This 91-nucleotide sequence from a Pseudonocardiaceae bacterium belongs to the Rfam family "Selenocysteine transfer RNA". The base pairs follow the family's consensus structure, which is taken from published work. Rfam 15.1 lists 4,211 matches to the family in 3,344 species.

[Rfam]
RNA sequence: GGAGGCGUAUUCGGCCUGGUGGCCGGCGCGGUCUUCAAAACCGUUGAACGGCAGGAACUGUCGUUGGCGGGUUCGAUUCCCGUCCGCCUCC
Numbered sequence: 001g002g003a004g005g006c007g008u009a010u011u012c013g014g015c016c017u018g019g020u021g022g023c024c025g026g027c028g029c030g031g032u033c034u035u036c037a038a039a040a041c042c043g044u045u046g047a048a049c050g051g052c053a054g055g056a057a058c059u060g061u062c063g064u065u066g067g068c069g070g071g072u073u074c075g076a077u078u079c080c081c082g083u084c085c086g087c088c089u090c091c
Base pairs, nucleotide, nucleotide: 001091002090003089004088005087006086007085009083011026012025013024014023015022016021028044029043030042031041032040047065048064049063050062051061068082069081070080071079

On this family, see Mizutani and Goto, FEBS Lett 2000: "Eukaryotic selenocysteine tRNA has the 9/4 secondary structure".